[Rfam]
RNA sequence: UGUUAAUGCUAAUCGUGAUAGGGGUUUUUACCUCGGACUGACUCCUACAUGUUAGCAUUAACA
Numbered sequence: 001u002g003u004u005a006a007u008g009c010u011a012a013u014c015g016u017g018a019u020a021g022g023g024g025u026u027u028u029u030a031c032c033u034c035g036g037a038c039u040g041a042c043u044c045c046u047a048c049a050u051g052u053u054a055g056c057a058u059u060a061a062c063a
Base pairs, nucleotide, nucleotide: 003061004060005059006058007057008056009055010054011053012052013051019047020046021045022044024042025041026040
RNA: mir-155 microRNA precursor family